[Rfam]
RNA sequence: CCAGAACAAGGCGCAAAACGCGCGGCUUCAACGGUCUUGGCUUGGGAGGGCGCGGUUUCCGGCGCAGCUCACGCUGCUGCCCUGGACAUUGUUCCGGUGUGAAACCCGGACCGGAAAUUCACGAUGCAAGGCUUCGGCCUUGCAUUUUUUU
Numbered sequence: 001c002c003a004g005a006a007c008a009a010g011g012c013g014c015a016a017a018a019c020g021c022g023c024g025g026c027u028u029c030a031a032c033g034g035u036c037u038u039g040g041c042u043u044g045g046g047a048g049g050g051c052g053c054g055g056u057u058u059c060c061g062g063c064g065c066a067g068c069u070c071a072c073g074c075u076g077c078u079g080c081c082c083u084g085g086a087c088a089u090u091g092u093u094c095c096g097g098u099g100u101g102a103a104a105c106c107c108g109g110a111c112c113g114g115a116a117a118u119u120c121a122c123g124a125u126g127c128a129a130g131g132c133u134u135c136g137g138c139c140u141u142g143c144a145u146u147u148u149u150u151u
Stems, first nucleotide, its partner, number of pairs: 003151004012024001013021002032113002039051001041049002054106005061081003064077003082097005125144008
RNA: Alphaproteobacterial sRNA ar9